[Rfam]
RNA sequence: CUAAGGGAUAGCCUGAUCAGCGAAAAGCCGUUGUCCUGGACGGCCUGCCCUUAAUUCUACUUUCCAGGG
Numbered sequence: 001c002u003a004a005g006g007g008a009u010a011g012c013c014u015g016a017u018c019a020g021c022g023a024a025a026a027g028c029c030g031u032u033g034u035c036c037u038g039g040a041c042g043g044c045c046u047g048c049c050c051u052u053a054a055u056u057c058u059a060c061u062u063u064c065c066a067g068g069g
Base pairs, nucleotide, nucleotide: 002053003052004051005050006049007048011021012020027044028043029042030041031040034069035068036067037066038065039064